[Rfam]
RNA sequence: GCGGAUGAAUAUUGUGGGAGAGACUAAACGCAUUGUUUAGCACCGAAGGAGCAAGUUCUAAUAAAUUUGGAAUCAAACUCUCAGGUAAAAAGGACUACAAUAGGACGCAUCUCUGGAGAGAGCCAUGUGCCACCAAAGGAGUUAAACUCUCAGGUAAAAGGACAGAGAA
Dot-bracket structure: (((......((((((((....(.(((((((...))))))))(((...((((...(((((((.....)))))))....))).).)))........))))))))...)))..(((((....(.((.....)))(((...(.((.....))..).))).......)))))..
RNA: glycine-GGAnGA riboswitch aptamer